This 85-nucleotide RNA from Cnephaeus nilssonii belongs to the Rfam family "mir-9243 microRNA precursor family".
Taxonomically the source falls in Cnephaeus (Eukaryota, Eumetazoa, Deuterostomia, Euteleostomi).
Rfam 15.1 lists 31 matches to the family in 4 species.
The family's consensus secondary structure was predicted with RNAalifold.
Its family is annotated with RISC complex and miRNA-mediated post-transcriptional gene silencing in the Gene Ontology.
The match comes from Rfam's covariance-model search (89 bits).

RNA sequence: CCAUGCACAAAUUUCGUGCACCGGGCUUCUAGUAUAUAUAUAUAUAUAUAUAUUAGAAGCCCAGUGCAUGAAUUUGUGCACGGGU
Numbered sequence: 001c002c003a004u005g006c007a008c009a010a011a012u013u014u015c016g017u018g019c020a021c022c023g024g025g026c027u028u029c030u031a032g033u034a035u036a037u038a039u040a041u042a043u044a045u046a047u048a049u050a051u052a053u054u055a056g057a058a059g060c061c062c063a064g065u066g067c068a069u070g071a072a073u074u075u076g077u078g079c080a081c082g083g084g085u
Base pairs, nucleotide, nucleotide: 001083002082004080005079006078007077008076009075010074011073013072014071015070017068018067019066020065021064023062024061025060026059027058028057029056030055031054032053033052034051035050